[Rfam]
Shown here is a 117-nucleotide RNA from Azospirillum sp. RU38E, a member of the family "ALIL pseudoknot". The family has 26 seed sequences and 2,146 matches in Rfam 15.1. Pairs were carried over by alignment from the consensus structure, which is taken from published work.

RNA sequence: UGCAUAUUUCGCGAUGGCGGAGCUCGACCGCCGACCGAAAUGAUGUUGGGCUUCGUGGAGGCCCACCGCCGGGAAUACGGGGUCGAGCCAAUCUGCAAGGUAUUGCCGACUGCCCCG
Numbered sequence: 001u002g003c004a005u006a007u008u009u010c011g012c013g014a015u016g017g018c019g020g021a022g023c024u025c026g027a028c029c030g031c032c033g034a035c036c037g038a039a040a041u042g043a044u045g046u047u048g049g050g051c052u053u054c055g056u057g058g059a060g061g062c063c064c065a066c067c068g069c070c071g072g073g074a075a076u077a078c079g080g081g082g083u084c085g086a087g088c089c090a091a092u093c094u095g096c097a098a099g100g101u102a103u104u105g106c107c108g109a110c111u112g113c114c115c116c117g
Stems, first nucleotide, its partner, number of pairs: 016032005078117005089112002092109002095106004
The match comes from Rfam's covariance-model search (104 bits). Rfam links the family to the GO term positive regulation of translational frameshifting. Rfam classes the family as a cis-regulatory element.